RNA sequence: GCCUGAGGCUGGCGGACGGCUUGAGCCUGGGGGGGUUCUGGGCCAGCGAGCUGUGCUGAGCGGGCGUCCGCGCUAAGUUCAGCAUCGAUAUGGUGGUCCUGGGGGAGCCGGGGGCCACCAGGUCGCCUAAGGAGGGGUGAACCGGCCCAGGUCGGAGACGGAGCAGGUCAAAACUCCUGUGCUGAUCAGUAGCGGGAUGGCGCCUGUGAACAGUCCCUGUAGCACAGCCCGGGCGAGAGAGCGGGACCCAGUUUCCU
Numbered sequence: 001g002c003c004u005g006a007g008g009c010u011g012g013c014g015g016a017c018g019g020c021u022u023g024a025g026c027c028u029g030g031g032g033g034g035g036u037u038c039u040g041g042g043c044c045a046g047c048g049a050g051c052u053g054u055g056c057u058g059a060g061c062g063g064g065c066g067u068c069c070g071c072g073c074u075a076a077g078u079u080c081a082g083c084a085u086c087g088a089u090a091u092g093g094u095g096g097u098c099c100u101g102g103g104g105g106a107g108c109c110g111g112g113g114g115c116c117a118c119c120a121g122g123u124c125g126c127c128u129a130a131g132g133a134g135g136g137g138u139g140a141a142c143c144g145g146c147c148c149a150g151g152u153c154g155g156a157g158a159c160g161g162a163g164c165a166g167g168u169c170a171a172a173a174c175u176c177c178u179g180u181g182c183u184g185a186u187c188a189g190u191a192g193c194g195g196g197a198u199g200g201c202g203c204c205u206g207u208g209a210a211c212a213g214u215c216c217c218u219g220u221a222g223c224a225c226a227g228c229c230c231g232g233g234c235g236a237g238a239g240a241g242c243g244g245g246a247c248c249c250a251g252u253u254u255c256c257u
Stems, first nucleotide, its partner, number of pairs: 005255008017244001019242004025234007038227003042223002044219003048215001050214005056208001060207008068196002071194005077187001079185007086125004091120010102109002126132002133178006144169004152161003
RNA: Metazoan signal recognition particle RNA